Shown here is a 93-nucleotide RNA from Anaerotruncus massiliensis, a member of the family "Selenocysteine transfer RNA".
RNA sequence: GGGGGUGGAUGGGCGCCGGUGUGCCUCCCGGUCUUCAAAACCGGUGUGGGCGGCGCAGAGCCGCCCGGGUGAGUUCGAUUCUCACACGCCCCC
Dot-bracket structure: ((((((((..((((((....)))))).(((((.......)))))..(((((...........)))))..((((.......))))).)))))))
NCBI's taxonomy places the organism under Bacteria, Bacillati, Clostridia, Oscillospiraceae, Anaerotruncus.